[Rfam]
RNA sequence: GAAAGGGUGACCGAUCGUGGGGAGAGCGAAGCGAGGGGCCAAGCGUGGAGCGUAAGUCGCGAGCCGACGAACAGAAAUCGCAUACAAGGCACUGCCGAGCAGGGCGAGCGGGCCAUAAACCGCAAAGCUCUUGUGACCAAGGUGAGGUGGUGUAGAUGCGGCGGUUGUGCGACGAAGGUGUGCGU
Dot-bracket structure: ((..((....))..)).................................((....(((((((((((...........((((((.....(((.((((..(..((((..((((........))))...))))............)..)))).)))..))))))))))).))))))....))......